[Rfam]
RNA sequence: CUGCAGCCAAUUGAGUUGACCGAGCUCUUUUCCUCCUGGGGGCUUGGUGUGCAAUGGCUGCAAACAGCAGAUUCCUUGGUAGUGUAUGCAGCCUGCUUCUUGUAUGGGUUGCCUCUAAGGGACCUUGAAGGCAGCC
Numbered sequence: 001c002u003g004c005a006g007c008c009a010a011u012u013g014a015g016u017u018g019a020c021c022g023a024g025c026u027c028u029u030u031u032c033c034u035c036c037u038g039g040g041g042g043c044u045u046g047g048u049g050u051g052c053a054a055u056g057g058c059u060g061c062a063a064a065c066a067g068c069a070g071a072u073u074c075c076u077u078g079g080u081a082g083u084g085u086a087u088g089c090a091g092c093c094u095g096c097u098u099c100u101u102g103u104a105u106g107g108g109u110u111g112c113c114u115c116u117a118a119g120g121g122a123c124c125u126u127g128a129a130g131g132c133a134g135c136c
Stems, first nucleotide, its partner, number of pairs: 002053004019048004025042004078124003089111006
RNA: Small nucleolar RNA SNORA70